RNA sequence: CCCUCCGAAGUUUCCCUCAGGAUAGCUGGCGCUCACCUCGCAGCAGUUUUAUCCGGUAAAGCUAAUGAUUAGAGGCAUUGGGGCCGAAACGAUCUCAACCUAUUCUCAAACUUUAAAUGGGUAAGAAGCCCGGCUCGCUGGCUUGGAGCCGGGCAUGGAAUGCGAGCGCCCAGUGGGCCACUUUUGGUAAGCAGAACUGGCGCUGCGGGAUGAACCGAACGCCGGGUUAAGGCGCCCGAUGCCGACGCUCAUCAGACCCCAUAAAAGGUGUUGGUUGAUAUAGACAGCAGGACGGUGGCCAUGGAAGUCGGAAUCCGCUAAGGAGUGUGUAACAACUCACCUGCCGAAUCAACUAGCCCUGAAAAUGGAUGGCGCUGGAGCGUCGGGCCCAUACCCGGCCGUCGCAGGCACACUCCGUCCCCUUCACCGGGAACGCCUCAGGGCCUAAGCCGCGACGAGUAGGAGGGCCGCUGCGGUGGCGCGGAAGCCUCGGGCGCGGGCCCGGGUGGAGCCGCCGCAGGUGCAGAU
Numbered sequence: 001c002c003c004u005c006c007g008a009a010g011u012u013u014c015c016c017u018c019a020g021g022a023u024a025g026c027u028g029g030c031g032c033u034c035a036c037c038u039c040g041c042a043g044c045a046g047u048u049u050u051a052u053c054c055g056g057u058a059a060a061g062c063u064a065a066u067g068a069u070u071a072g073a074g075g076c077a078u079u080g081g082g083g084c085c086g087a088a089a090c091g092a093u094c095u096c097a098a099c100c101u102a103u104u105c106u107c108a109a110a111c112u113u114u115a116a117a118u119g120g121g122u123a124a125g126a127a128g129c130c131c132g133g134c135u136c137g138c139u140g141g142c143u144u145g146g147a148g149c150c151g152g153g154c155a156u157g158g159a160a161u162g163c164g165a166g167c168g169c170c171c172a173g174u175g176g177g178c179c180a181c182u183u184u185u186g187g188u189a190a191g192c193a194g195a196a197c198u199g200g201c202g203c204u205g206c207g208g209g210a211u212g213a214a215c216c217g218a219a220c221g222c223c224g225g226g227u228u229a230a231g232g233c234g235c236c237c238g239a240u241g242c243c244g245a246c247g248c249u250c251a252u253c254a255g256a257c258c259c260c261a262u263a264a265a266a267g268g269u270g271u272u273g274g275u276u277g278a279u280a281u282a283g284a285c286a287g288c289a290g291g292a293c294g295g296u297g298g299c300c301a302u303g304g305a306a307g308u309c310g311g312a313a314u315c316c317g318c319u320a321a322g323g324a325g326u327g328u329g330u331a332a333c334a335a336c337u338c339a340c341c342u343g344c345c346g347a348a349u350c351a352a353c354u355a356g357c358c359c360u361g362a363a364a365a366u367g368g369a370u371g372g373c374g375c376u377g378g379a380g381c382g383u384c385g386g387g388c389c390c391a392u393a394c395c396c397g398g399c400c401g402u403c404g405c406a407g408g409c410a411c412a413c414u415c416c417g418u419c420c421c422c423u424u425c426a427c428c429g430g431g432a433a434c435g436c437c438u439c440a441g442g443g444c445c446u447a448a449g450c451c452g453c454g455a456c457g458a459g460u461a462g463g464a465g466g467g468c469c470g471c472u473g474c475g476g477u478g479g480c481g482c483g484g485a486a487g488c489c490u491c492g493g494g495c496g497c498g499g500g501c502c503c504g505g506g507u508g509g510a511g512c513c514g515c516c517g518c519a520g521g522u523g524c525a526g527a528u
Base pairs, nucleotide, nucleotide: 001467002466003465004464005463006462011024013022014021015020028170029169030168031167032166033165047126048125049124050123051122052121053120054119059114060112061111066108067107068106071103073101074100075099078098079097080096081095082094083093085091128154129153130152131151132150133149134148135147136146177201178200179199180198182196183195184194185193186192206217207216208215221399222398223397224396225395227393231389232388233387240386242385246382247381248380266360267359268358270357271356272355273354274353275352276351277350278349279348287344288343289342290341291340293317294316295315299311300310318322323338327336328335400457401456402455403454404453405452407451408450409449469523471520472519473518474517475516476515477514478513479512480511487507488506493502494501495500
This 528-nucleotide part of an RNA from Hemibagrus wyckioides belongs to the Rfam family "Eukaryotic large subunit ribosomal RNA". The base pairs follow the family's consensus structure, which is taken from published work. It scores 2783 bits against the family's covariance model.